[Rfam]
RNA sequence: GCCGUCAUCGGGGGGAGCCCAUCGGGGGCUGAGAGGCGGGCGACCGCGACCCCACGAACCUGAUCCGGGUCAUGCCGGCGAAGGGAACGGUGUCUGCCUGUGGU
Numbered sequence: 001g002c003c004g005u006c007a008u009c010g011g012g013g014g015g016a017g018c019c020c021a022u023c024g025g026g027g028g029c030u031g032a033g034a035g036g037c038g039g040g041c042g043a044c045c046g047c048g049a050c051c052c053c054a055c056g057a058a059c060c061u062g063a064u065c066c067g068g069g070u071c072a073u074g075c076c077g078g079c080g081a082a083g084g085g086a087a088c089g090g091u092g093u094c095u096g097c098c099u100g101u102g103g104u
Stems, first nucleotide, its partner, number of pairs: 006092005011053004017029004036047004059084003065078004
The family of this 104-nucleotide RNA sequence from Falsiroseomonas stagni is "TPP riboswitch aptamer (THI element)". The organism belongs to Falsiroseomonas stagni, within Bacteria. A search with the family's covariance model found it, with a score of 67 bits.